Notes: The family of this 83-nucleotide RNA sequence from Saccharibacillus sacchari is "c-di-GMP-I-GGC riboswitch aptamer".
RNA sequence: AACGAUAAAGGCAAACCUUUCGAAAGAAAGGGACGCAAAGCUAUAGGGCCUUACCCGCAAGGGUUGGCAGCCAGCCACCGAAA
Numbered sequence: 001a002a003c004g005a006u007a008a009a010g011g012c013a014a015a016c017c018u019u020u021c022g023a024a025a026g027a028a029a030g031g032g033a034c035g036c037a038a039a040g041c042u043a044u045a046g047g048g049c050c051u052u053a054c055c056c057g058c059a060a061g062g063g064u065u066g067g068c069a070g071c072c073a074g075c076c077a078c079c080g081a082a083a
Stems, first nucleotide, its partner, number of pairs: 003080002011036002016031006034070001040075003046072002048068003
The match comes from Rfam's covariance-model search (67 bits).